[Rfam]
RNA sequence: ACACGUGCUCCGGGGUCAGUGAAAGUCUGAGCCGGCGGUGAUAGUCCGCGACCCAUCUCCUUCGGGAGGUGGUUGAUCUGGUGAAAUUCCGGAACCGACGGUUAAAGUCCGGAUGGGAGGAGACGUGG
Numbered sequence: 001a002c003a004c005g006u007g008c009u010c011c012g013g014g015g016u017c018a019g020u021g022a023a024a025g026u027c028u029g030a031g032c033c034g035g036c037g038g039u040g041a042u043a044g045u046c047c048g049c050g051a052c053c054c055a056u057c058u059c060c061u062u063c064g065g066g067a068g069g070u071g072g073u074u075g076a077u078c079u080g081g082u083g084a085a086a087u088u089c090c091g092g093a094a095c096c097g098a099c100g101g102u103u104a105a106a107g108u109c110c111g112g113a114u115g116g117g118a119g120g121a122g123a124c125g126u127g128g
Stems, first nucleotide, its partner, number of pairs: 003126004009120002017029003031108002033097002035049004044095002053072002077093005099111003
Source information: The record is a 128-nucleotide RNA sequence from Microbacterium mitrae, which matches "FMN riboswitch aptamer (RFN element)" in Rfam. Lineage of the source: Bacteria > Bacillati > Actinomycetota > Micrococcales > Microbacterium.